[Rfam]
RNA sequence: AAACUUACUUGGCUGGGAGGUGACUCGCGAUCACGAAGGCGAGUACUCCACGGUGAGGUCGGCCCAUUGCACUCACGGGCAGUGACUGACCCGUGUGGCAGUCUCGAGUUGGGACUCGCCAACAGCAUAAUUUUUGCGUUUGGGGACAGACAGUAGUGCCGUUCCCCG
Numbered sequence: 001a002a003a004c005u006u007a008c009u010u011g012g013c014u015g016g017g018a019g020g021u022g023a024c025u026c027g028c029g030a031u032c033a034c035g036a037a038g039g040c041g042a043g044u045a046c047u048c049c050a051c052g053g054u055g056a057g058g059u060c061g062g063c064c065c066a067u068u069g070c071a072c073u074c075a076c077g078g079g080c081a082g083u084g085a086c087u088g089a090c091c092c093g094u095g096u097g098g099c100a101g102u103c104u105c106g107a108g109u110u111g112g113g114a115c116u117c118g119c120c121a122a123c124a125g126c127a128u129a130a131u132u133u134u135u136g137c138g139u140u141u142g143g144g145g146a147c148a149g150a151c152a153g154u155a156g157u158g159c160c161g162u163u164c165c166c167c168g
Stems, first nucleotide, its partner, number of pairs: 012126004016049004024043005050094004055090001057087003061083001062080004096121004100116002103113002142167005149160001151158002